[Rfam]
RNA: Bacterial RNase P class A
Organism: Chitinivibrio alkaliphilus
RNA sequence: GAGAACAGUUUUGGCAGUCGCACCGUAUACGGUGAGGAAAGUCCGGACACCACAGAACAGGGUACCGGGAGAAGCCCCGGGGAUACUUCGGUAUUACGGAAAGUGCCGCAGAUAAAAGUCGGCUCUGCUAGAGCGGAGUCAGAAGUGAAACGGAAGGAUAAGAUCUUCCAUAUGGUAAACCCUGCCCGGUGCAAGACCAAGCAGAGAAUUUUCCCUCAGGGGAAAGGGAGUUGUUCGCUCCCCCGUUCUCAGGUGGGUCGCUCAAUGCCCCCUUUGGAGGCCAGAUAAAUGACUGCCCCAAUGAACUAUUGGAACAAAAUCCGGCUUACGAACUGUUCUCUCCC
Numbered sequence: 001g002a003g004a005a006c007a008g009u010u011u012u013g014g015c016a017g018u019c020g021c022a023c024c025g026u027a028u029a030c031g032g033u034g035a036g037g038a039a040a041g042u043c044c045g046g047a048c049a050c051c052a053c054a055g056a057a058c059a060g061g062g063u064a065c066c067g068g069g070a071g072a073a074g075c076c077c078c079g080g081g082g083a084u085a086c087u088u089c090g091g092u093a094u095u096a097c098g099g100a101a102a103g104u105g106c107c108g109c110a111g112a113u114a115a116a117a118g119u120c121g122g123c124u125c126u127g128c129u130a131g132a133g134c135g136g137a138g139u140c141a142g143a144a145g146u147g148a149a150a151c152g153g154a155a156g157g158a159u160a161a162g163a164u165c166u167u168c169c170a171u172a173u174g175g176u177a178a179a180c181c182c183u184g185c186c187c188g189g190u191g192c193a194a195g196a197c198c199a200a201g202c203a204g205a206g207a208a209u210u211u212u213c214c215c216u217c218a219g220g221g222g223a224a225a226g227g228g229a230g231u232u233g234u235u236c237g238c239u240c241c242c243c244c245g246u247u248c249u250c251a252g253g254u255g256g257g258u259c260g261c262u263c264a265a266u267g268c269c270c271c272c273u274u275u276g277g278a279g280g281c282c283a284g285a286u287a288a289a290u291g292a293c294u295g296c297c298c299c300a301a302u303g304a305a306c307u308a309u310u311g312g313a314a315c316a317a318a319a320u321c322c323g324g325c326u327u328a329c330g331a332a333c334u335g336u337u338c339u340c341u342c343c344c
Stems, first nucleotide, its partner, number of pairs: 001340010013297007021034005039327003043324005048191004055236004060187005065080005081097001082095004098182002103180002105176003119144001121140008152169006195259004204250006227241005266280001